[Rfam]
RNA sequence: GCUGAGCUUAGUAAUGUGAGCUUGUAACCGAAGUGGGGGCAUUAAUGUGAUUGGACAUUAGGUUUGCCCAACUAGUUGCUAAUUGCUCGCUUGUCUAUUCCAAGCGAGAAGUUGGGUCAUGUAAUCUAAGCGAAGGCAUAGGCUUCGUGGCCUCUAAAGUGGGGGGCAUUGCGUUAGGCUGGUUUCACAGAGCAGCGACAACCCUCUGCUCCUUGCAGUGGAAGGAUAACGAGUUGGUGCCUCCUUAGCUUCACAAAACUAGAUGGGCUAGCCUUAAUUGGACAAUCAUAUUU
Numbered sequence: 001g002c003u004g005a006g007c008u009u010a011g012u013a014a015u016g017u018g019a020g021c022u023u024g025u026a027a028c029c030g031a032a033g034u035g036g037g038g039g040c041a042u043u044a045a046u047g048u049g050a051u052u053g054g055a056c057a058u059u060a061g062g063u064u065u066g067c068c069c070a071a072c073u074a075g076u077u078g079c080u081a082a083u084u085g086c087u088c089g090c091u092u093g094u095c096u097a098u099u100c101c102a103a104g105c106g107a108g109a110a111g112u113u114g115g116g117u118c119a120u121g122u123a124a125u126c127u128a129a130g131c132g133a134a135g136g137c138a139u140a141g142g143c144u145u146c147g148u149g150g151c152c153u154c155u156a157a158a159g160u161g162g163g164g165g166g167c168a169u170u171g172c173g174u175u176a177g178g179c180u181g182g183u184u185u186c187a188c189a190g191a192g193c194a195g196c197g198a199c200a201a202c203c204c205u206c207u208g209c210u211c212c213u214u215g216c217a218g219u220g221g222a223a224g225g226a227u228a229a230c231g232a233g234u235u236g237g238u239g240c241c242u243c244c245u246u247a248g249c250u251u252c253a254c255a256a257a258a259c260u261a262g263a264u265g266g267g268c269u270a271g272c273c274u275u276a277a278u279u280g281g282a283c284a285a286u287c288a289u290a291u292u293u
Base pairs, nucleotide, nucleotide: 001040002039003038004023005022006021007020008019009018010017028037029036044292045291046290047289048288049287050286051285052284053283056280057279058277059276060275061273062272063271064270066268068266069265070264072262073261074260075259076258077257078240080239081238086237087236089234090233091232092231093230094229095225096224098223099222100221101220102219104216105215106214107213108212110210111209112208114153115152116151117150118149119148120147121146123144125142126141127140128139130137131136154159161206162205163204164203165202172197173196174195179190180189181188
RNA: Plant signal recognition particle RNA